Overview
The record is a 103-nucleotide sequence from Deinococcus puniceus, which matches "SAM riboswitch aptamer (S box leader)" in Rfam. Rfam's curators write: The SAM riboswitch is found upstream of a number of genes which code for proteins involved in methionine or cysteine biosynthesis in Gram-positive bacteria. The SAM riboswitch acts at the level of transcription termination control. The predicted structure consists of a complex stem-loop region followed by a single stem loop terminator region.
RNA sequence: CAAUCCAGAGCGCCCGAGAGAACUGGCUCGUAGACGGCGCGGCAACCGGACUUCAUUACGUCACGGUGCCAAGGCCAGCCCAACGGCGCGUUAACGAUGACUG
Numbered sequence: 001c002a003a004u005c006c007a008g009a010g011c012g013c014c015c016g017a018g019a020g021a022a023c024u025g026g027c028u029c030g031u032a033g034a035c036g037g038c039g040c041g042g043c044a045a046c047c048g049g050a051c052u053u054c055a056u057u058a059c060g061u062c063a064c065g066g067u068g069c070c071a072a073g074g075c076c077a078g079c080c081c082a083a084c085g086g087c088g089c090g091u092u093a094a095c096g097a098u099g100a101c102u103g
Stems, first nucleotide, its partner, number of pairs: 001103002004100002010040005018029003023078004041070004046066002048062002074098001082092003
The match comes from Rfam's covariance-model search (51 bits).
Lineage of the source: Bacteria > Deinococcota > Deinococci > Deinococcales > Deinococcus.
Its family is annotated with regulation of gene expression in the Gene Ontology.